Background: freshwater-2 RNA: an 85-nucleotide RNA sequence. Pairs were carried over by alignment from the consensus structure, which is taken from published work.
RNA sequence: AGUGUUCAUAUGAACAUUUAUGCAGAUCCAACUGCGUACUGGAUAGAACCCAGAUAGGACUACUUAAAUAGGAGAAAACAAAAUG
Numbered sequence: 001a002g003u004g005u006u007c008a009u010a011u012g013a014a015c016a017u018u019u020a021u022g023c024a025g026a027u028c029c030a031a032c033u034g035c036g037u038a039c040u041g042g043a044u045a046g047a048a049c050c051c052a053g054a055u056a057g058g059a060c061u062a063c064u065u066a067a068a069u070a071g072g073a074g075a076a077a078a079c080a081a082a083a084u085g
Stems, first nucleotide, its partner, number of pairs: 001018006019038007039053004
Dot-bracket structure: ((((((......))))))(((((((......)))))))((((.......))))................................